[Rfam]
RNA sequence: GCGACAGCUAUAGCUCACUGGUUACUUCACAGCGUCAACCUAAUUGUAAAUUCGGGCCUGUCUCACCAUGGGCGCUGCUUGGCGUUUUU
Numbered sequence: 001g002c003g004a005c006a007g008c009u010a011u012a013g014c015u016c017a018c019u020g021g022u023u024a025c026u027u028c029a030c031a032g033c034g035u036c037a038a039c040c041u042a043a044u045u046g047u048a049a050a051u052u053c054g055g056g057c058c059u060g061u062c063u064c065a066c067c068a069u070g071g072g073c074g075c076u077g078c079u080u081g082g083c084g085u086u087u088u089u
Base pairs, nucleotide, nucleotide: 002084003083005081006080007079013073014072015071016070019068020067021066026056027055028054
The family of this 89-nucleotide sequence from Scyliorhinus torazame is "Vault RNA". The organism belongs to Scyliorhinus, within Eukaryota.